The family of this 47-nucleotide sequence from Dicrurus megarhynchus is "Histone 3' UTR stem-loop". Lineage of the source: Eukaryota > Archelosauria > Coelurosauria > Dicruridae > Dicrurus.
RNA sequence: CCAAAGGCUCUUUUAAGAGCCACUAAAUACUCAAUUAAAAGAGUUGG
Numbered sequence: 001c002c003a004a005a006g007g008c009u010c011u012u013u014u015a016a017g018a019g020c021c022a023c024u025a026a027a028u029a030c031u032c033a034a035u036u037a038a039a040a041g042a043g044u045u046g047g
Base pairs, nucleotide, nucleotide: 006021007020008019009018010017011016